[Rfam]
RNA sequence: GGAAAUUUGAGAGGACCUGUCCUUAGUACGAGAGGACCGGGAUGGACAUACCGCUGGUGUACCAGUUGUUCCGCCAGGAGCACCGCUGGGUAGCUAUGUAUGGAUGAGAUAAACGCUGAAAGCAUCUAAGCGUGAAACUCGCCUCGAGAUGAGAUUUCCCAUUCCCUUCGGGGAAGUAAGACCCCUCAGAGAUGAUGAGGUAGAUAGGAUGGAAGUGGAAGCACCGUGAGGUGUGGAGCGGACCAUUACUAAUCGGUCGAGG
Numbered sequence: 001g002g003a004a005a006u007u008u009g010a011g012a013g014g015a016c017c018u019g020u021c022c023u024u025a026g027u028a029c030g031a032g033a034g035g036a037c038c039g040g041g042a043u044g045g046a047c048a049u050a051c052c053g054c055u056g057g058u059g060u061a062c063c064a065g066u067u068g069u070u071c072c073g074c075c076a077g078g079a080g081c082a083c084c085g086c087u088g089g090g091u092a093g094c095u096a097u098g099u100a101u102g103g104a105u106g107a108g109a110u111a112a113a114c115g116c117u118g119a120a121a122g123c124a125u126c127u128a129a130g131c132g133u134g135a136a137a138c139u140c141g142c143c144u145c146g147a148g149a150u151g152a153g154a155u156u157u158c159c160c161a162u163u164c165c166c167u168u169c170g171g172g173g174a175a176g177u178a179a180g181a182c183c184c185c186u187c188a189g190a191g192a193u194g195a196u197g198a199g200g201u202a203g204a205u206a207g208g209a210u211g212g213a214a215g216u217g218g219a220a221g222c223a224c225c226g227u228g229a230g231g232u233g234u235g236g237a238g239c240g241g242a243c244c245a246u247u248a249c250u251a252a253u254c255g256g257u258c259g260a261g262g
Base pairs, nucleotide, nucleotide: 001159002158003157004156005155006154007153008152011145012144013143014142017045018044019043020042021041022040023039047102048101049100050099051098055096056095057094062089063088064087065086066085067082068081069080070079071078072077106140107139108138113133114132115131116130117129162175163174164173177260180258181257182256183255184200185199186198187197188196205251206250207249208247209246210245211244212243215239221234222233223232224231225230

Bacterial large subunit ribosomal RNA: a 262-nucleotide part of an RNA from Limosilactobacillus frumenti.